[Rfam]
RNA sequence: UUUGGAGCGGCAAGCCGGCACGACCAGCUCCCGCUGAACUCCCCCAGGGCCGGAAGGCAGCAAGGGUAGGCGGUUGAGCGGUGCGAUGUUCGGCUUGCUUUUUU
Numbered sequence: 001u002u003u004g005g006a007g008c009g010g011c012a013a014g015c016c017g018g019c020a021c022g023a024c025c026a027g028c029u030c031c032c033g034c035u036g037a038a039c040u041c042c043c044c045c046a047g048g049g050c051c052g053g054a055a056g057g058c059a060g061c062a063a064g065g066g067u068a069g070g071c072g073g074u075u076g077a078g079c080g081g082u083g084c085g086a087u088g089u090u091c092g093g094c095u096u097g098c099u100u101u102u103u104u
Base pairs, nucleotide, nucleotide: 009099010098011097012096013095014094015093018089019088020087021085022084023082024081

Shown here is a 104-nucleotide RNA from a Hymenobacteraceae bacterium, a member of the family "Bacteroidales small SRP". A reference for the family is Ryan et al. (2020), "A high-resolution transcriptome map identifies small RNA regulation of metabolism in the gut microbe Bacteroides thetaiotaomicron", Nat Commun. The organism belongs to Hymenobacteraceae, within Bacteria. Its Rfam clan is "SRP clan".